[Rfam]
RNA sequence: GAAGCAGGCCAGACAAUCGCUGGUUGCCAUGUUCACAUGGUGACGGGAGGAAGGUCCGGACUCCAUAGAGCAGGGUGACGGCUAACGGCCGUACGUUGAAAGCGGAGGCGAAAGCUGAAGUAUAAGACGAGGAAUAGGGCCACAGAGACGAGCGUAUUAAGUUACGGUGAAACGCGGUAACCUCCACCCGGAGCAAUUUCAAAUAGGCACGCGUUGAGGCGGCUCGCGGAGCGUGCGGGUAGAAAGCUUGAGCGGCGGAGUAAUCCGUCGCCUAGAGGAAUGAUUGUCAUAGCAGCAGGUAGCAAUAUCUGAUGCCGUAACAAAAUCCGGCCUAUCGGCCUGCUUCAAUU
Numbered sequence: 001g002a003a004g005c006a007g008g009c010c011a012g013a014c015a016a017u018c019g020c021u022g023g024u025u026g027c028c029a030u031g032u033u034c035a036c037a038u039g040g041u042g043a044c045g046g047g048a049g050g051a052a053g054g055u056c057c058g059g060a061c062u063c064c065a066u067a068g069a070g071c072a073g074g075g076u077g078a079c080g081g082c083u084a085a086c087g088g089c090c091g092u093a094c095g096u097u098g099a100a101a102g103c104g105g106a107g108g109c110g111a112a113a114g115c116u117g118a119a120g121u122a123u124a125a126g127a128c129g130a131g132g133a134a135u136a137g138g139g140c141c142a143c144a145g146a147g148a149c150g151a152g153c154g155u156a157u158u159a160a161g162u163u164a165c166g167g168u169g170a171a172a173c174g175c176g177g178u179a180a181c182c183u184c185c186a187c188c189c190g191g192a193g194c195a196a197u198u199u200c201a202a203a204u205a206g207g208c209a210c211g212c213g214u215u216g217a218g219g220c221g222g223c224u225c226g227c228g229g230a231g232c233g234u235g236c237g238g239g240u241a242g243a244a245a246g247c248u249u250g251a252g253c254g255g256c257g258g259a260g261u262a263a264u265c266c267g268u269c270g271c272c273u274a275g276a277g278g279a280a281u282g283a284u285u286g287u288c289a290u291a292g293c294a295g296c297a298g299g300u301a302g303c304a305a306u307a308u309c310u311g312a313u314g315c316c317g318u319a320a321c322a323a324a325a326u327c328c329g330g331c332c333u334a335u336c337g338g339c340c341u342g343c344u345u346c347a348a349u350u
Base pairs, nucleotide, nucleotide: 001346002345003344004343005342006341007340008339009338010337011335012288013287014286015285016284017283018282020047021046023044024043025042026041027040028039029038030037052333053332054331056330057329058328059327060326061193062192063191064190068225069224070223071222073189074188075187076186077185078092079091080090081089082088094129095128096127097126132184133183137182138181139178140177141176153166154165155164156163197245198244199243200242207236208235209234210233211232212231219227220226252271253270254269255268256267257266258265259264